[Rfam]
RNA sequence: UCUAGAACUCGAAAUAUGGGCUGAACACUAAAUAAUGUUUAGGCUGCAGGACAGAUUCGGACUUCUCUGUUGUUGCUAUAAUUUGGACUUGAAAAUGGCUUUUUUAAAUCUUAGACUCCACAUAAAAGUUUUAGACCUAUAUCUUAGCUUUCCAUC
Numbered sequence: 001u002c003u004a005g006a007a008c009u010c011g012a013a014a015u016a017u018g019g020g021c022u023g024a025a026c027a028c029u030a031a032a033u034a035a036u037g038u039u040u041a042g043g044c045u046g047c048a049g050g051a052c053a054g055a056u057u058c059g060g061a062c063u064u065c066u067c068u069g070u071u072g073u074u075g076c077u078a079u080a081a082u083u084u085g086g087a088c089u090u091g092a093a094a095a096u097g098g099c100u101u102u103u104u105u106a107a108a109u110c111u112u113a114g115a116c117u118c119c120a121c122a123u124a125a126a127a128g129u130u131u132u133a134g135a136c137c138u139a140u141a142u143c144u145u146a147g148c149u150u151u152c153c154a155u156c
Stems, first nucleotide, its partner, number of pairs: 003154001005152003008147002011145002014142007021134005027129003035123003042118002045115001048112004054105002059100002062098002068092001072088003
The family of this 156-nucleotide RNA sequence from Populus tomentosa is "MIR2912 microRNA precursor family". The match comes from Rfam's covariance-model search (140 bits). Taxonomically the source falls in Populus (Eukaryota, Euphyllophyta, Mesangiospermae, Salicaceae).